[Rfam]
RNA sequence: GCCGCAGACCGCCUUAUCGUUCCGAUUUAUCGGGAAGGAAAGUCCGGACACCACAGAGUAGCAUAGCGGGUAACGCCCGUCCGUCGAGAGAUGAGGACAAGUGCAACAGAAAGUAUGUACAGGUAAGGCUGUAGUGAAACCAGGUAAACUCUAUGCGGUGAAAUUCCAAGUAUAUCGGCAUUUAAGGGUUACUCGCCCGUUGUCGAAGGGUAGGAAGCUCGAGCCAAUGAGCAAUUGUUGGCCCAGAUAAAUGAUAAGGGUUCGUUUCGAUGAAUACAGAAUCCGGCUUAUAGGUCUGCUUUUUUU
Number, nucleotide and partner (000 for none) at each position: 001g302002c000003c000004g299005c298006a297007g296008a295009c294010c293011g291012c259013c258014u257015u256016a255017u254018c253019g000020u035021u034022c033023c032024g031025a030026u000027u000028u000029a000030u025031c024032g023033g022034g021035a020036a000037g000038g000039a000040a289041a288042g287043u000044c286045c285046g284047g283048a282049c160050a159051c158052c157053a000054c000055a000056g194057a193058g192059u191060a000061g156062c155063a154064u153065a152066g080067c079068g078069g077070g076071u000072a000073a000074c000075g000076c070077c069078c068079g067080u066081c095082c093083g092084u091085c090086g000087a000088g000089a000090g085091a084092u083093g082094a000095g081096g151097a150098c000099a000100a000101g149102u148103g145104c144105a000106a000107c000108a000109g000110a000111a000112a000113g000114u000115a000116u000117g000118u000119a000120c000121a000122g000123g000124u000125a000126a000127g000128g000129c000130u000131g000132u000133a000134g000135u000136g000137a000138a000139a000140c000141c000142a000143g000144g104145u103146a000147a000148a102149c101150u097151c096152u065153a064154u063155g062156c061157g052158g051159u050160g049161a000162a000163a000164u216165u215166c214167c213168a000169a000170g000171u000172a000173u000174a000175u206176c205177g204178g203179c202180a000181u000182u000183u000184a000185a000186g198187g197188g196189u195190u000191a059192c058193u057194c056195g189196c188197c187198c186199g000200u000201u000202g179203u178204c177205g176206a175207a000208g000209g000210g000211u000212a000213g167214g166215a165216a164217g000218c000219u000220c000221g000222a000223g242224c241225c240226a239227a238228u237229g236230a235231g000232c000233a000234a000235u230236u229237g228238u227239u226240g225241g224242c223243c000244c000245a000246g000247a000248u000249a000250a000251a000252u000253g018254a017255u016256a015257a014258g013259g012260g000261u000262u000263c000264g000265u000266u000267u000268c000269g000270a000271u000272g000273a000274a000275u000276a000277c000278a000279g000280a000281a000282u048283c047284c046285g045286g044287c042288u041289u040290a000291u011292a000293g010294g009295u008296c007297u006298g005299c004300u000301u000302u001303u000304u000305u000306u000
Bacterial RNase P class A: a 306-nucleotide sequence from Flavobacterium rivulicola.
From the family's description: Ribonuclease P (RNase P) is a ubiquitous endoribonuclease, found in archaea, bacteria and eukarya as well as chloroplasts and mitochondria.
NCBI's taxonomy places the organism under Bacteria, Bacteroidota, Flavobacteriales, Flavobacteriaceae, Flavobacterium.
Rfam classes the family as a ribozyme.
Its family is annotated with tRNA processing, ribonuclease P activity and dimeric ribonuclease P complex in the Gene Ontology.